[Rfam]
RNA sequence: GAAUUCCAAGGAAGGAAUGAUGUUCUCAUUGAGACUCAAGAAAAGGAUUCUGAGCCUCAGCUGUGAAGGAACCUCUUGGUACCUGACCUUCCUUAAUUAAGG
Numbered sequence: 001g002a003a004u005u006c007c008a009a010g011g012a013a014g015g016a017a018u019g020a021u022g023u024u025c026u027c028a029u030u031g032a033g034a035c036u037c038a039a040g041a042a043a044a045g046g047a048u049u050c051u052g053a054g055c056c057u058c059a060g061c062u063g064u065g066a067a068g069g070a071a072c073c074u075c076u077u078g079g080u081a082c083c084u085g086a087c088c089u090u091c092c093u094u095a096a097u098u099a100a101g102g
Stems, first nucleotide, its partner, number of pairs: 009093007